A member of the RNA family "Selenocysteine insertion sequence 1" from Lottia gigantea, 61 nucleotides long. Lineage of the source: Eukaryota > Gastropoda > Lottioidea > Lottiidae > Lottia. The family has 61 seed sequences and 3,793 matches in Rfam 15.1. About the family: The incorporation of selenocysteine into a protein sequence is directed by an in-frame UGA codon (usually a stop codon) within the coding region of the mRNA. Selenoprotein mRNAs contain a conserved secondary structure in the 3' UTR that is required for the distinction of UGA stop from UGA selenocysteine.

RNA sequence: UACUCUGUAUGACGAUUUCUAUUAAAAUCUCGCGAAUAGUAGAAAUCUGAUGAUCUGAGUA
Numbered sequence: 001u002a003c004u005c006u007g008u009a010u011g012a013c014g015a016u017u018u019c020u021a022u023u024a025a026a027a028u029c030u031c032g033c034g035a036a037u038a039g040u041a042g043a044a045a046u047c048u049g050a051u052g053a054u055c056u057g058a059g060u061a
Base pairs, nucleotide, nucleotide: 001061002060003059004058005057014047015046016045017044018043019042020041021040022039023038030035
Background: The family's consensus secondary structure is taken from published work. It is annotated as a cis-regulatory element. It scores 44 bits against the family's covariance model.